[Rfam]
RNA sequence: ACCCCGCGCUUGGCCGGGUUACGCCAAGCAUCCUCCCUGUUGGACUGACCCGGGCCUCGCGCUCGGGUCCUUUU
Numbered sequence: 001a002c003c004c005c006g007c008g009c010u011u012g013g014c015c016g017g018g019u020u021a022c023g024c025c026a027a028g029c030a031u032c033c034u035c036c037c038u039g040u041u042g043g044a045c046u047g048a049c050c051c052g053g054g055c056c057u058c059g060c061g062c063u064c065g066g067g068u069c070c071u072u073u074u
Stems, first nucleotide, its partner, number of pairs: 008029007048068008
This 74-nucleotide RNA sequence from Pseudaestuariivita atlantica belongs to the Rfam family "Singlet oxygen resistance RNA X". Rfam classes the family as a small RNA. The pairing is the family consensus, mapped onto this sequence. SorX (RSs2461)like SorY is a singlet oxygen induced sRNA that counteracts oxidative stress by targeting mRNA for a transporter in Rhodobacter. It also has an impact on resistance against organic hydroperoxides. It targets SD sequence of potA mRNA via an aSD sequence. The aSD sequence and some neighbouring nucleotides are identical to the one of SorY (targets takP mRNA).